[Rfam]
RNA: Burkholderia RNA 7 (anti-hemB)
Organism: Pseudomethylobacillus aquaticus
RNA sequence: UCUCCUGCUUUUCCUCCCUGAGCAGGAAGCUUCAGUAAUGAAGCUUUAUUACCCCGAUUUUAUCCCCUUUAAUCGGGGUUUUUUUU
Numbered sequence: 001u002c003u004c005c006u007g008c009u010u011u012u013c014c015u016c017c018c019u020g021a022g023c024a025g026g027a028a029g030c031u032u033c034a035g036u037a038a039u040g041a042a043g044c045u046u047u048a049u050u051a052c053c054c055c056g057a058u059u060u061u062a063u064c065c066c067c068u069u070u071a072a073u074c075g076g077g078g079u080u081u082u083u084u085u086u
Base pairs, nucleotide, nucleotide: 004026005025006024007023008022009021028045029044030043031042032041033040034039052078053077054076055075056074057073058072059071